RpsF leader: a 79-nucleotide RNA sequence from Ferrimonas marina.
Lineage of the source: Bacteria > Pseudomonadota > Gammaproteobacteria > Alteromonadales > Ferrimonas.
About the family: Conserved and widely distributed to many bacterial species RNA structure. It precedes operon containing rpsF, which encodes ribosomal protein S6. The motif also precedes operon containing rpsR, which encodes ribosomal protein S18. The RNA was shown to interact with S6:S18 protein dimer in vitro.
Rfam links the family to the GO terms protein binding and negative regulation of translation.
[Rfam]
RNA sequence: GCCAAACCCCUUUUUGUUCCUUGCCUCUUAGGCCCGGCCGAGCCAUACGAGGCUAAUUAACCGUAAGGAGCGAUUCAUG
Number, nucleotide and partner (000 for none) at each position: 001g000002c000003c000004a000005a000006a000007c000008c000009c000010c000011u000012u000013u000014u000015u000016g071017u070018u069019c068020c067021u066022u065023g053024c052025c051026u050027c049028u000029u000030a000031g044032g043033c042034c000035c000036g000037g000038c000039c000040g000041a000042g033043c032044c031045a000046u000047a000048c000049g027050a026051g025052g024053c023054u000055a000056a000057u000058u000059a000060a000061c000062c000063g000064u000065a022066a021067g020068g019069a018070g017071c016072g000073a000074u000075u000076c000077a000078u000079g000

The pairing is the family consensus, mapped onto this sequence.